[Rfam]
RNA sequence: GAUAAAAAUAUUUUUUUCUCUCGUAUAAUAAUGGGGAUAUGGCCCAUGAGUCUCUACCCGAUAACCGUAAAUUAUUGGACUAUGAGAGAAAGUAGUUCCAUU
Numbered sequence: 001g002a003u004a005a006a007a008a009u010a011u012u013u014u015u016u017u018c019u020c021u022c023g024u025a026u027a028a029u030a031a032u033g034g035g036g037a038u039a040u041g042g043c044c045c046a047u048g049a050g051u052c053u054c055u056a057c058c059c060g061a062u063a064a065c066c067g068u069a070a071a072u073u074a075u076u077g078g079a080c081u082a083u084g085a086g087a088g089a090a091a092g093u094a095g096u097u098c099c100a101u102u
Stems, first nucleotide, its partner, number of pairs: 018088008029049001031047005058078007
The family of this 102-nucleotide RNA from Mesobacillus zeae is "Purine riboswitch aptamer". The family's consensus secondary structure is taken from published work.